Y RNA: a 116-nucleotide RNA from Rhinopithecus roxellana.
Rfam describes the family as follows. Y RNAs are components of the Ro ribonucleoprotein particle (Ro RNP), in association with Ro60 and La proteins.

RNA sequence: AGCUGGUCUGAAGGUAGUGAGUUAUUUCAAUUGAUUGUUCACAGUCAGUUACAGAUAGAAUUCCUUGUUCUACUUGCCCUCCACCCCAUCUCACUACUGCAGUUGACUAGUCUUUU
Dot-bracket structure: .(((((((.((..((((((((......................((.((........................)).))............))))))...))..))))))))).....
Record summary:
The family has 104 seed sequences and 26,986 matches in Rfam 15.1.